[Rfam]
RNA: Retron msr RNA
Organism: Marinobacterium stanieri
RNA sequence: GCUCUUUAGUGUUGGACUGUACAAGUCUAGUCGGGUGAUUAGCCAGACUCUAACUUAUUGAACGGG
Numbered sequence: 001g002c003u004c005u006u007u008a009g010u011g012u013u014g015g016a017c018u019g020u021a022c023a024a025g026u027c028u029a030g031u032c033g034g035g036u037g038a039u040u041a042g043c044c045a046g047a048c049u050c051u052a053a054c055u056u057a058u059u060g061a062a063c064g065g066g
Base pairs, nucleotide, nucleotide: 003065004064005062006061007060008059009058029049030048031047032046034044035043036042